[Rfam]
RNA sequence: GUAGUGCUCAAAACCUGGCAGCACUUUAUUCCAGAGCAAAAAGUGCUCCCAUAGUUUGAGUACCAC
Numbered sequence: 001g002u003a004g005u006g007c008u009c010a011a012a013a014c015c016u017g018g019c020a021g022c023a024c025u026u027u028a029u030u031c032c033a034g035a036g037c038a039a040a041a042a043g044u045g046c047u048c049c050c051a052u053a054g055u056u057u058g059a060g061u062a063c064c065a066c
Base pairs, nucleotide, nucleotide: 004063005062006061007060008059009058010057011056012055016051017050018049020047021046022045023044024043025042026041027040
The record is a 66-nucleotide sequence from Cricetulus griseus, which matches "mir-290 microRNA precursor family" in Rfam. For this family Rfam cites "Embryonic stem cell-specific MicroRNAs" (Houbaviy et al., Dev Cell, 2003). It scores 54 bits against the family's covariance model. The organism belongs to Cricetulus, within Eukaryota.